Shown here is a 55-nucleotide RNA sequence from Sphingomonas sp. LH128, a member of the family "nhaA-I RNA". The base pairs follow the family's consensus structure, which is taken from published work. Rfam's curators write: Acidobacteria, Alphaproteobacteria, Betaproteobacteria and Gammaproteobacteria, Verrucomicrobia, cand. division NC10. It is one of the family's seed sequences.
RNA sequence: GGGUGCUCGCCGAUCCCGGCAAGCAGGUUUCGCAGUGCCGGUCGGGCCGCCGGUG
Numbered sequence: 001g002g003g004u005g006c007u008c009g010c011c012g013a014u015c016c017c018g019g020c021a022a023g024c025a026g027g028u029u030u031c032g033c034a035g036u037g038c039c040g041g042u043c044g045g046g047c048c049g050c051c052g053g054u055g
Stems, first nucleotide, its partner, number of pairs: 005024003009020004036055007
Dot-bracket structure: ....(((.((((....)))).)))...........(((((((......)))))))